RNA sequence: CACGGACUAAUGAUGGUUUGUUUCAAAACCCGUCUUGAGGAAAAAACAGACCUGAUGCAUUUGGCGUG
Numbered sequence: 001c002a003c004g005g006a007c008u009a010a011u012g013a014u015g016g017u018u019u020g021u022u023u024c025a026a027a028a029c030c031c032g033u034c035u036u037g038a039g040g041a042a043a044a045a046a047c048a049g050a051c052c053u054g055a056u057g058c059a060u061u062u063g064g065c066g067u068g
Base pairs, nucleotide, nucleotide: 001068002067003066004065015052016051017050018049019048020047021046022045023044030040031039
Shown here is a 68-nucleotide RNA from Anabarilius grahami, a member of the family "Selenocysteine insertion sequence 1". By type it is a cis-regulatory element.